Annotation: Rfam assigns this 81-nucleotide RNA to the family "RT-18 RNA". It is annotated as a small RNA. The base pairs follow the family's consensus structure, which is taken from published work.
RNA sequence: UAGCACUUGCUAAAAAUAAUGUCGAAACUGGACUGGCUUAGUAGUUUCUUUUAAGCGAAAAGUCGGUAGACAAAAUAAGAA
Numbered sequence: 001u002a003g004c005a006c007u008u009g010c011u012a013a014a015a016a017u018a019a020u021g022u023c024g025a026a027a028c029u030g031g032a033c034u035g036g037c038u039u040a041g042u043a044g045u046u047u048c049u050u051u052u053a054a055g056c057g058a059a060a061a062g063u064c065g066g067u068a069g070a071c072a073a074a075a076u077a078a079g080a081a
Stems, first nucleotide, its partner, number of pairs: 001012004020072004032067007044056002